[Rfam]
RNA sequence: GCCGAGCUGAGUAGCGCCAGCUUGUGACCCAAGUGGGGGCACCAAGGUGAUGGAACAUGGCUUAGCCUUAAUAGGUUGGAUUGGUGUGUGCACCAUGUUGGCUUGCCCGCUCCAAGUUGAGAGUUGAACCAUGGGAAUCAAGCGAAGGCUUGGGUCUUGUGGGUCUUAGACAGGAGGGUACUGCGUGAGGCUGGCUUCACAGAGCAGUGAAUACCUCCUACUCUUGACAGUGGAGGGAUCACAGGCUGCUGCACCUCCAGCCCACAACACCUGGUGAGCCUAGCCUCUUGAACCAUCAUUUUU
Numbered sequence: 001g002c003c004g005a006g007c008u009g010a011g012u013a014g015c016g017c018c019a020g021c022u023u024g025u026g027a028c029c030c031a032a033g034u035g036g037g038g039g040c041a042c043c044a045a046g047g048u049g050a051u052g053g054a055a056c057a058u059g060g061c062u063u064a065g066c067c068u069u070a071a072u073a074g075g076u077u078g079g080a081u082u083g084g085u086g087u088g089u090g091c092a093c094c095a096u097g098u099u100g101g102c103u104u105g106c107c108c109g110c111u112c113c114a115a116g117u118u119g120a121g122a123g124u125u126g127a128a129c130c131a132u133g134g135g136a137a138u139c140a141a142g143c144g145a146a147g148g149c150u151u152g153g154g155u156c157u158u159g160u161g162g163g164u165c166u167u168a169g170a171c172a173g174g175a176g177g178g179u180a181c182u183g184c185g186u187g188a189g190g191c192u193g194g195c196u197u198c199a200c201a202g203a204g205c206a207g208u209g210a211a212u213a214c215c216u217c218c219u220a221c222u223c224u225u226g227a228c229a230g231u232g233g234a235g236g237g238a239u240c241a242c243a244g245g246c247u248g249c250u251g252c253a254c255c256u257c258c259a260g261c262c263c264a265c266a267a268c269a270c271c272u273g274g275u276g277a278g279c280c281u282a283g284c285c286u287c288u289u290g291a292a293c294c295a296u297c298a299u300u301u302u303u
Stems, first nucleotide, its partner, number of pairs: 001040003004023006028037003044302010056290002059286002061283002065279002068277003072273005078263002081260004086255001088254003099248007107237002110235005116228009126165002129162008138153006172219006182211001184209003191202003